[Rfam]
The record is a 171-nucleotide RNA from Paramaledivibacter caminithermalis, which matches "T-box leader" in Rfam. Lineage of the source: Bacteria > Bacillati > Bacillota > Caminicellaceae > Paramaledivibacter caminithermalis. A search with the family's covariance model found it, with a score of 106 bits. It is annotated as a cis-regulatory leader.
RNA sequence: UUGAGUGCGAUGAUGGAGAAGAGUAAUUAGAUUAAUUAUUAUAGAGAGUCGGUGGUGCUGGAAAUCCGAUAUAAUUGUUUGAUGAAGGGAGCUCCUAAGCAAUACAUUAUAAAGUGAGCGUUUUAACGUUAACUAGGGUGGAACCGCGGAAGUAAACCUUUCGUCCCUUUU
Number, nucleotide and partner (000 for none) at each position: 001u000002u000003g000004a000005g000006u000007g100008c099009g000010a000011u000012g000013a000014u000015g095016g094017a093018g092019a000020a000021g000022a000023g000024u000025a000026a083027u082028u081029a080030g079031a078032u000033u000034a000035a000036u000037u073038a072039u071040u000041a000042u000043a000044g000045a000046g000047a000048g070049u069050c068051g067052g066053u000054g000055g000056u000057g000058c000059u000060g000061g000062a000063a000064a000065u000066c052067c051068g050069a049070u048071a039072u038073a037074a000075u000076u000077g000078u031079u030080u029081g028082a027083u026084g000085a000086a000087g000088g000089g000090a000091g000092c018093u017094c016095c015096u000097a000098a000099g008100c007101a000102a000103u000104a000105c000106a000107u000108u000109a000110u000111a000112a000113a000114g000115u000116g000117a130118g129119c128120g127121u126122u000123u000124u000125a000126a121127c120128g119129u118130u117131a000132a000133c000134u000135a168136g167137g166138g165139u000140g000141g000142a000143a000144c000145c000146g164147c163148g162149g161150a160151a159152g158153u000154a000155a000156a000157c000158c152159u151160u150161u149162c148163g147164u146165c138166c137167c136168u135169u000170u000171u000